[Rfam]
RNA sequence: GUCGCAUCUAGCCUUGGCCUGGCGAAUAGCGGUAACACCCUGCUCGCCUGAUGCGGCCUCCUACUUCAACUAGGG
Numbered sequence: 001g002u003c004g005c006a007u008c009u010a011g012c013c014u015u016g017g018c019c020u021g022g023c024g025a026a027u028a029g030c031g032g033u034a035a036c037a038c039c040c041u042g043c044u045c046g047c048c049u050g051a052u053g054c055g056g057c058c059u060c061c062u063a064c065u066u067c068a069a070c071u072a073g074g075g
Stems, first nucleotide, its partner, number of pairs: 001057008011023003029047004038075005

int-alpA RNA: a 75-nucleotide RNA sequence from Halovibrio salipaludis. Lineage of the source: Bacteria > Pseudomonadati > Gammaproteobacteria > Halomonadaceae > Halovibrio. It is annotated as a small RNA. Rfam describes the family as follows. Acidobacteria (1 example), Planctomycetes (1 example), Proteobacteria.